[Rfam]
RNA sequence: CUUCUGAGCAUUGCACCCAGAGUCUGGUCACCCAGACAUUGUACCUGGAGCUUUUUCCUUUUUUUUAAUUAAAAU
Numbered sequence: 001c002u003u004c005u006g007a008g009c010a011u012u013g014c015a016c017c018c019a020g021a022g023u024c025u026g027g028u029c030a031c032c033c034a035g036a037c038a039u040u041g042u043a044c045c046u047g048g049a050g051c052u053u054u055u056u057c058c059u060u061u062u063u064u065u066u067a068a069u070u071a072a073a074a075u
Stems, first nucleotide, its partner, number of pairs: 006053004017048004022037005